A member of the RNA family "MIR2912 microRNA precursor family" from Populus trichocarpa, 161 nucleotides long. The match comes from Rfam's covariance-model search (72 bits). The family's consensus secondary structure was predicted with RNAalifold.
[Rfam]
RNA sequence: UCUAGAACUCCAGCUAUGGGUAAAUUUCUGAGCAGUGUUUGGGUUGGAUUGUAGAACAUAUUCUGACUUCUAUUUUGUGGCCAAACUUUGAAUUUGAAAACAGCAGAUUUAUGUCUUACACUAUUCAUGAACAUUGUAGGCCUAUUUCUUAGCUUUUUAUC
Number, nucleotide and partner (000 for none) at each position: 001u000002c000003u159004a158005g157006a156007a155008c152009u151010c000011c000012a149013g148014c000015u000016a145017u144018g143019g142020g141021u139022a000023a137024a000025u000026u000027u000028c000029u000030g000031a000032g000033c000034a000035g128036u127037g126038u000039u000040u000041g124042g000043g122044u000045u000046g000047g000048a000049u000050u120051g119052u000053a117054g116055a000056a114057c113058a000059u000060a109061u000062u107063c106064u105065g104066a000067c103068u102069u000070c000071u000072a000073u097074u096075u000076u000077g093078u092079g000080g000081c000082c000083a000084a000085a000086c000087u000088u000089u000090g000091a000092a078093u077094u000095u000096g074097a073098a000099a000100a000101c000102a068103g067104c065105a064106g063107a062108u000109u060110u000111a000112u000113g057114u056115c000116u054117u053118a000119c051120a050121c000122u043123a000124u041125u000126c037127a036128u035129g000130a000131a000132c000133a000134u000135u000136g000137u023138a000139g021140g000141c020142c019143u018144a017145u016146u000147u000148c013149u012150u000151a009152g008153c000154u000155u007156u006157u005158u004159a003160u000161c000